Vault RNA: a 108-nucleotide sequence from Labeo rohita. The base pairs follow the family's consensus structure, which is taken from published work. The family's RNA type in Rfam is non-coding RNA gene. Lineage of the source: Eukaryota > Euteleostomi > Clupeocephala > Ostariophysi > Labeo. The match comes from Rfam's covariance-model search (58 bits).

[Rfam]
RNA sequence: GCGUUGGUAUAGCUCAGUGGUUACUUCCAGCUUGAGAAAGUUCACCUCUCAUGGCCAUCGGGCAACUGGUGACCGGAGAUCGAACCACGGGCACUGUCCAACGUUUUG
Numbered sequence: 001g002c003g004u005u006g007g008u009a010u011a012g013c014u015c016a017g018u019g020g021u022u023a024c025u026u027c028c029a030g031c032u033u034g035a036g037a038a039a040g041u042u043c044a045c046c047u048c049u050c051a052u053g054g055c056c057a058u059c060g061g062g063c064a065a066c067u068g069g070u071g072a073c074c075g076g077a078g079a080u081c082g083a084a085c086c087a088c089g090g091g092c093a094c095u096g097u098c099c100a101a102c103g104u105u106u107u108g
Stems, first nucleotide, its partner, number of pairs: 002103006012092004017088004025084003029080001